[Rfam]
Shown here is a 143-nucleotide RNA from Paracandidimonas soli, a member of the family "Manganese Mn2+ riboswitch aptamer (yybP-ykoY)". The pairing is the family consensus, mapped onto this sequence. The source organism's lineage runs through Bacteria, Pseudomonadota, Betaproteobacteria, Alcaligenaceae and Paracandidimonas. It scores 57 bits against the family's covariance model.

RNA sequence: CGCCUGUUCUUUGGGGAGUAGCCUGCUUCCGUCUCCGGAAGCGCCAUCGUCAACAUGCUUGGCCCACAAGGCCAUGGCGAUGGCAUCAUCCAGAUUGGCAAGACCAUCGACAUAUUCGCGCAGUCCUUUGGUCGGGCGCAUGC
Numbered sequence: 001c002g003c004c005u006g007u008u009c010u011u012u013g014g015g016g017a018g019u020a021g022c023c024u025g026c027u028u029c030c031g032u033c034u035c036c037g038g039a040a041g042c043g044c045c046a047u048c049g050u051c052a053a054c055a056u057g058c059u060u061g062g063c064c065c066a067c068a069a070g071g072c073c074a075u076g077g078c079g080a081u082g083g084c085a086u087c088a089u090c091c092a093g094a095u096u097g098g099c100a101a102g103a104c105c106a107u108c109g110a111c112a113u114a115u116u117c118g119c120g121c122a123g124u125c126c127u128u129u130g131g132u133c134g135g136g137c138g139c140a141u142g143c
Stems, first nucleotide, its partner, number of pairs: 025042003043084010060074005